[Rfam]
RNA sequence: AAACCGCCCCCUAAGUUUUACAACUGUAGCAGUUUUGGUCCCCCAAGGAAAAAAAACAAAAAAAAAACAUGUGGCACCUCACUUAGGGUGCCACGUCAGCGUAGACCGAAUCAAAAUUGGUCUUGGGGGCCAAAACCGCCACAUGUGCAAAACUUAAGGGGCGGUUU
Number, nucleotide and partner (000 for none) at each position: 001a167002a166003a000004c164005c163006g162007c161008c160009c000010c000011c000012u156013a155014a154015g153016u152017u151018u150019u149020a000021c147022a146023a000024c000025u143026g142027u141028a000029g139030c138031a000032g136033u135034u134035u133036u132037g131038g130039u129040c128041c127042c126043c125044c000045a123046a000047g000048g000049a000050a000051a000052a000053a000054a000055a000056a000057c000058a000059a000060a000061a000062a000063a000064a000065a000066a000067a000068c000069a096070u095071g000072u093073g092074g091075c090076a089077c088078c087079u000080c000081a000082c000083u000084u000085a000086g000087g078088g077089u076090g075091c074092c073093a072094c000095g070096u069097c000098a000099g000100c000101g000102u000103a000104g000105a000106c000107c000108g000109a000110a000111u000112c000113a000114a000115a000116a000117u000118u000119g000120g000121u000122c000123u045124u000125g043126g042127g041128g040129g039130c038131c037132a036133a035134a034135a033136c032137c000138g030139c029140c000141a027142c026143a025144u000145g000146u022147g021148c000149a019150a018151a017152a016153c015154u014155u013156a012157a000158g000159g000160g008161g007162c006163g005164g004165u000166u002167u001
This 167-nucleotide RNA from Medicago truncatula belongs to the Rfam family "MIR2619 microRNA precursor family". Rfam links the family to the GO terms miRNA-mediated post-transcriptional gene silencing and RISC complex.